[Rfam]
The family of this 261-nucleotide RNA sequence from Moorena producens is "Group I catalytic intron". A search with the family's covariance model found it, with a score of 68 bits. For this family Rfam cites "Self-splicing of group I introns" (Cech, Annu Rev Biochem, 1990).
RNA sequence: GCAAGCGCCUCCUGAAAAAUCGGGCACCAUGGAAGAAAUUCUGUGAGUGAAUGUGGUCAAAUUCGGUGAAACCUAAGGGGUAUUUAGCUUAUUGAGUACUCUAAGGCAAUACCGAGCCAAGCCUGAAUCUGUGUGCGAGUAAUCGUCGAGGUUAAAUCCAGGAAGGUGGAGAGACUAGACGGCCACCACCUAAGGGGUAUUAUCCUUAAUGGGUAUUAUCCUAGGGUGAAGGUAUAGUCCAGAGAGUGGGGAAACUCACAC
Numbered sequence: 001g002c003a004a005g006c007g008c009c010u011c012c013u014g015a016a017a018a019a020u021c022g023g024g025c026a027c028c029a030u031g032g033a034a035g036a037a038a039u040u041c042u043g044u045g046a047g048u049g050a051a052u053g054u055g056g057u058c059a060a061a062u063u064c065g066g067u068g069a070a071a072c073c074u075a076a077g078g079g080g081u082a083u084u085u086a087g088c089u090u091a092u093u094g095a096g097u098a099c100u101c102u103a104a105g106g107c108a109a110u111a112c113c114g115a116g117c118c119a120a121g122c123c124u125g126a127a128u129c130u131g132u133g134u135g136c137g138a139g140u141a142a143u144c145g146u147c148g149a150g151g152u153u154a155a156a157u158c159c160a161g162g163a164a165g166g167u168g169g170a171g172a173g174a175c176u177a178g179a180c181g182g183c184c185a186c187c188a189c190c191u192a193a194g195g196g197g198u199a200u201u202a203u204c205c206u207u208a209a210u211g212g213g214u215a216u217u218a219u220c221c222u223a224g225g226g227u228g229a230a231g232g233u234a235u236a237g238u239c240c241a242g243a244g245a246g247u248g249g250g251g252a253a254a255c256u257c258a259c260a261c
Base pairs, nucleotide, nucleotide: 005027007025008024009023010022013019031042032041033040053186054185055184056183058181063115064114065113066112067111068110072106073105074104076102077101078100079099116167117166122161171240173239174238175237176236177235189226190225191224193222194221195220196219246259247258248257249256250255